Rfam assigns this 77-nucleotide RNA sequence from Alligator mississippiensis to the family "Mammalian CPEB3 ribozyme". The base pairs follow the family's consensus structure, which is taken from published work.

[Rfam]
RNA sequence: ACCUCAAACCACAGGCAAUAGCAGAAGUGCUCAAGGCAGGGCCCUGUUAGAUUCCAAAUGAAUCUGUGAAUUCUGCU
Numbered sequence: 001a002c003c004u005c006a007a008a009c010c011a012c013a014g015g016c017a018a019u020a021g022c023a024g025a026a027g028u029g030c031u032c033a034a035g036g037c038a039g040g041g042c043c044c045u046g047u048u049a050g051a052u053u054c055c056a057a058a059u060g061a062a063u064c065u066g067u068g069a070a071u072u073c074u075g076c077u
Stems, first nucleotide, its partner, number of pairs: 015042002020077007028038002048066007